[Rfam]
RNA sequence: ACGAGAUGCCUCUCCGACUAGACGAACAGAACCCUAAGCAAGCUCUAUUCUUCCCGGUCAGAGGGGCAUUUCUAUGUCACGACGCCCACUCAACACCCCGACUCAUCGGUGGAUCGAG
Numbered sequence: 001a002c003g004a005g006a007u008g009c010c011u012c013u014c015c016g017a018c019u020a021g022a023c024g025a026a027c028a029g030a031a032c033c034c035u036a037a038g039c040a041a042g043c044u045c046u047a048u049u050c051u052u053c054c055c056g057g058u059c060a061g062a063g064g065g066g067c068a069u070u071u072c073u074a075u076g077u078c079a080c081g082a083c084g085c086c087c088a089c090u091c092a093a094c095a096c097c098c099c100g101a102c103u104c105a106u107c108g109g110u111g112g113a114u115c116g117a118g
Stems, first nucleotide, its partner, number of pairs: 003072011016059002018056001021053002024050003029045001032042001099116003103112003